RNA sequence: AUUAGUUGUCACGCUUACACUAACUGUGAUAAAUAUUAUGAAUAUUCAUUCGAUGUCAACAUAAUGAAAACCUAUUUAUGAAAGCUGUUGGUUAAGUGAUUAGCCUAGUCGUGAUUAGCGUUGUGUUGAUUAUUACCCCACCGUGCGGGGCUGCACUUGGACGAAGAAAAGCUUACUAAACAAGCUUAAAUCUCAAGAAAACCCCCGCACCAACUGGUCGGGUUUUUUGGGGCAUCAAUCAAGCGACAGGAGAACACUUAAUGAUAAUUGGAAUAUUGUUCUGUCCCUGCGGCAC
Numbered sequence: 001a002u003u004a005g006u007u008g009u010c011a012c013g014c015u016u017a018c019a020c021u022a023a024c025u026g027u028g029a030u031a032a033a034u035a036u037u038a039u040g041a042a043u044a045u046u047c048a049u050u051c052g053a054u055g056u057c058a059a060c061a062u063a064a065u066g067a068a069a070a071c072c073u074a075u076u077u078a079u080g081a082a083a084g085c086u087g088u089u090g091g092u093u094a095a096g097u098g099a100u101u102a103g104c105c106u107a108g109u110c111g112u113g114a115u116u117a118g119c120g121u122u123g124u125g126u127u128g129a130u131u132a133u134u135a136c137c138c139c140a141c142c143g144u145g146c147g148g149g150g151c152u153g154c155a156c157u158u159g160g161a162c163g164a165a166g167a168a169a170a171g172c173u174u175a176c177u178a179a180a181c182a183a184g185c186u187u188a189a190a191u192c193u194c195a196a197g198a199a200a201a202c203c204c205c206c207g208c209a210c211c212a213a214c215u216g217g218u219c220g221g222g223u224u225u226u227u228u229g230g231g232g233c234a235u236c237a238a239u240c241a242a243g244c245g246a247c248a249g250g251a252g253a254a255c256a257c258u259u260a261a262u263g264a265u266a267a268u269u270g271g272a273a274u275a276u277u278g279u280u281c282u283g284u285c286c287c288u289g290c291g292g293c294a295c
Stems, first nucleotide, its partner, number of pairs: 006032007013024001015022001038076001041073001045068005086250001088248001091244002095239001098236003103233004110120003123141003128137001130135001143162002146159004163194002165191001170187002173184002196228006204222004209218003251282006258271003
Shown here is a 295-nucleotide RNA sequence from Sodalis-like symbiont of Bactericera trigonica, a member of the family "Soft rot Enterobacteriaceae Rev 39 5'UTR". About the family: From bacteria cultured under starvation conditions. The family's RNA type in Rfam is cis-regulatory element. Taxonomically the source falls in Sodalis (Bacteria, Pseudomonadati, Gammaproteobacteria, Enterobacterales).